[Rfam]
A member of the RNA family "Small nucleolar RNA snoR138" from Prunus persica, 150 nucleotides long. Pairs were carried over by alignment from the consensus structure, which was predicted with mfold. The literature on the family includes a 2009 paper in Nucleic Acids Res by Chen and Wu, "Mining small RNA sequencing data: a new approach to identify small nucleolar RNAs in Arabidopsis".
RNA sequence: CUUGCCCUUCGAAUAACCAGAAGGCGAGAUGCAAGUCCGACGCCGUUUGGUUCAGACAGGGGCAUAUAGUGUUUCGAAGCAAUCUGAGGGUGAUGAGCUUUCAAUUCUUCAUCCUCAAUUAAGUUUUUUUAUACUUAGCUUCGAAAAUGC
Numbered sequence: 001c002u003u004g005c006c007c008u009u010c011g012a013a014u015a016a017c018c019a020g021a022a023g024g025c026g027a028g029a030u031g032c033a034a035g036u037c038c039g040a041c042g043c044c045g046u047u048u049g050g051u052u053c054a055g056a057c058a059g060g061g062g063c064a065u066a067u068a069g070u071g072u073u074u075c076g077a078a079g080c081a082a083u084c085u086g087a088g089g090g091u092g093a094u095g096a097g098c099u100u101u102c103a104a105u106u107c108u109u110c111a112u113c114c115u116c117a118a119u120u121a122a123g124u125u126u127u128u129u130u131a132u133a134c135u136u137a138g139c140u141u142c143g144a145a146a147a148u149g150c
Base pairs, nucleotide, nucleotide: 003064004063005062006061007060009059015052016051017050018049019048020047021046024043025042026041075143076142077141078140079139080138082119083118086116087115088114090113092110093109095107096106097105126133

Rfam classes the family as an H/ACA-box small nucleolar RNA. Gene Ontology terms of the family: nucleolus and RNA processing.